[Rfam]
RNA sequence: AUUCAUCUUCGGGGUCGGUGCAAUUCCGAACCGGCGGUUACAGUCCGCGACCUGAUUACUCAGCUGAACUGGUGAAAUUCCAGUACCGACAGUACAGUCUGGAUGGGAGAAGAUGGAG
Numbered sequence: 001a002u003u004c005a006u007c008u009u010c011g012g013g014g015u016c017g018g019u020g021c022a023a024u025u026c027c028g029a030a031c032c033g034g035c036g037g038u039u040a041c042a043g044u045c046c047g048c049g050a051c052c053u054g055a056u057u058a059c060u061c062a063g064c065u066g067a068a069c070u071g072g073u074g075a076a077a078u079u080c081c082a083g084u085a086c087c088g089a090c091a092g093u094a095c096a097g098u099c100u101g102g103a104u105g106g107g108a109g110a111a112g113a114u115g116g117a118g
Base pairs, nucleotide, nucleotide: 003116004115005114006113007112008111009110010109016028017027018026030098031097032088033087034048035047036046037045043086044085052063053062068084069083070082071081072080090101091100092099